[Rfam]
The family of this 124-nucleotide RNA from Enterococcus casseliflavus is "Ribosomal protein L20 leader". NCBI's taxonomy places the organism under Bacteria, Bacillati, Bacilli, Lactobacillales, Enterococcus casseliflavus. The family's RNA type in Rfam is cis-regulatory leader.

Nucleotides: 124
Base pairs, nucleotide, nucleotide: 011026012025013024014023015022016021028051029050030049034046035045036044037043090110091109092108093107094106095105096104097103
Number, partner (000 for none) and nucleotide at each position: 001000a002000a003000a004000u005000a006000a007000a008000a009000g010000c011026a012025g013024a014023a015022g016021c017000a018000c019000c020000c021016g022015c023014u024013u025012c026011u027000c028051g029050c030049c031000u032000g033000a034046g035045u036044g037043a038000a039000g040000a041000u042000a043037u044036c045035g046034c047000u048000g049030g050029g051028c052000a053000g054000a055000a056000u057000a058000g059000g060000a061000u062000u063000c064000c065000u066000a067000c068000c069000a070000u071000u072000u073000a074000u075000u076000u077000g078000u079000g080000u081000g082000g083000a084000g085000u086000a087000c088000g089000u090110g091109c092108g093107g094106g095105u096104u097103c098000g099000u100000g101000a102000a103097g104096a105095a106094c107093u108092c109091g110090u111000u112000u113000u114000u115000u116000u117000a118000u119000u120000g121000u122000c123000u124000g